[Rfam]
RNA: Small nucleolar RNA R38
Organism: Acanthisitta chloris
RNA sequence: CUGAGCCUAUGAUGUACUGUUAUCCCUGUCUGACACUCAGCUGUGAGGAGAAACCUUCCACUGAGGCUUAU
Numbered sequence: 001c002u003g004a005g006c007c008u009a010u011g012a013u014g015u016a017c018u019g020u021u022a023u024c025c026c027u028g029u030c031u032g033a034c035a036c037u038c039a040g041c042u043g044u045g046a047g048g049a050g051a052a053a054c055c056u057u058c059c060a061c062u063g064a065g066g067c068u069u070a071u
Stems, first nucleotide, its partner, number of pairs: 002070006